[Rfam]
Rfam assigns this 288-nucleotide sequence from Spizellomyces punctatus to the family "Nuclear RNase P". By type it is a ribozyme. From the family's description: Ribonuclease P (RNase P) is a ubiquitous endoribonuclease, found in archaea, bacteria and eukarya as well as chloroplasts and mitochondria.
RNA sequence: GUGGUGCUCAAGCUUGUGACUCCAGCAACACAUCCGGGUAAGGGGUUCGCCCCUUGCUAUUGACGCUGGGACAGGCUCCCACAUAAGCACAUCAAACGCCUGAAAGAGGCGCAGGGCGCAAGCUCUGGUGGGUUAUCAGAAAUUCAGGCGCUGGGCUUGCUCGAUGAUGCUUUGUGCACAGAGUUGGGACCAGUUGCCUUUGAAACAGGCCCAUGUGCGGCAAACCGUUAAGUGCAAUUCACAAGCCGACUUGCGAGUCGGACAUGAGUGGGAUGCUCUGACUGCCAC
Number, nucleotide and partner (000 for none) at each position: 001g288002u287003g286004g285005u000006g000007c000008u281009c280010a279011a000012g000013c245014u244015u243016g242017u241018g240019a239020c000021u000022c069023c068024a067025g066026c065027a000028a000029c000030a000031c000032a000033u000034c000035c000036g000037g000038g000039u000040a055041a054042g053043g052044g051045g050046u000047u000048c000049g000050c045051c044052c043053c042054u041055u040056g000057c000058u000059a000060u000061u000062g000063a000064c000065g026066c025067u024068g023069g022070g000071a000072c000073a000074g000075g000076c000077u000078c272079c271080c270081a269082c268083a000084u000085a000086a000087g218088c217089a216090c215091a000092u000093c000094a000095a000096a000097c111098g110099c109100c108101u107102g000103a000104a000105a000106g000107a101108g100109g099110c098111g097112c127113a126114g125115g124116g123117c122118g000119c000120a000121a000122g117123c116124u115125c114126u113127g112128g214129u213130g212131g211132g210133u209134u208135a000136u000137c000138a000139g000140a000141a000142a000143u000144u000145c000146a199147g198148g197149c000150g000151c000152u000153g000154g000155g000156c000157u000158u000159g000160c000161u000162c000163g000164a000165u000166g000167a000168u000169g000170c000171u000172u000173u000174g000175u000176g000177c000178a000179c000180a000181g000182a000183g000184u000185u000186g000187g000188g000189a000190c000191c000192a000193g000194u000195u000196g000197c148198c147199u146200u000201u000202g000203a000204a000205a000206c000207a000208g134209g133210c132211c131212c130213a129214u128215g090216u089217g088218c087219g000220g000221c000222a000223a000224a000225c000226c000227g000228u000229u000230a000231a000232g000233u000234g000235c000236a000237a000238u000239u019240c018241a017242c016243a015244a014245g013246c261247c260248g259249a258250c257251u256252u000253g000254c000255g000256a251257g250258u249259c248260g247261g246262a000263c000264a000265u000266g000267a000268g082269u081270g080271g079272g078273a000274u000275g000276c000277u000278c000279u010280g009281a008282c000283u000284g000285c004286c003287a002288c001

The organism belongs to Spizellomyces punctatus, within Eukaryota. A reference for the family is Frank et al. (2000), "Phylogenetic-comparative analysis of the eukaryal ribonuclease P RNA", RNA.